A member of the RNA family "nhaA-II RNA" from Brevundimonas subvibrioides, 82 nucleotides long. Rfam classes the family as a cis-regulatory element. Taxonomically the source falls in Brevundimonas subvibrioides (Bacteria, Pseudomonadati, Pseudomonadota, Brevundimonas).
RNA sequence: AUCAGGUCCGGGCAUGCCCCGGGACCAGGCCGGCGCCCCAGGGCGAACCCGGUCAGAUGCCCGUCGAUAACCGGGCGUCACG
Numbered sequence: 001a002u003c004a005g006g007u008c009c010g011g012g013c014a015u016g017c018c019c020c021g022g023g024a025c026c027a028g029g030c031c032g033g034c035g036c037c038c039c040a041g042g043g044c045g046a047a048c049c050c051g052g053u054c055a056g057a058u059g060c061c062c063g064u065c066g067a068u069a070a071c072c073g074g075g076c077g078u079c080a081c082g
Base pairs, nucleotide, nucleotide: 005026006025007024008023009021010020011019012018028054029053030052031051032050033049034045035044036043037042056079057078058077059076060075061074